[Rfam]
RNA sequence: GGAAUAUAAGAACUCGUCUCUUAAUUUUUAAUUAAAAAGGCUAAGAACCGAUUCUUAAAUAAGAGCUUUAAUAAUCGGCUUUUAGUUUUUUUAGUUAAAAAUUAAGAGACGGGUUCUUAUAUUCC
Numbered sequence: 001g002g003a004a005u006a007u008a009a010g011a012a013c014u015c016g017u018c019u020c021u022u023a024a025u026u027u028u029u030a031a032u033u034a035a036a037a038a039g040g041c042u043a044a045g046a047a048c049c050g051a052u053u054c055u056u057a058a059a060u061a062a063g064a065g066c067u068u069u070a071a072u073a074a075u076c077g078g079c080u081u082u083u084a085g086u087u088u089u090u091u092u093a094g095u096u097a098a099a100a101a102u103u104a105a106g107a108g109a110c111g112g113g114u115u116c117u118u119a120u121a122u123u124c125c
Base pairs, nucleotide, nucleotide: 001125002124003123004122005121006120007119008118009117010116011115012114013113014112015111016110017109018108019107020106021105022104023103024102025101026100027099028098029097030096031095032094033093034092035091036090037089038088039087041085042084043083044082045081046080
RNA: MIR9563 microRNA precursor family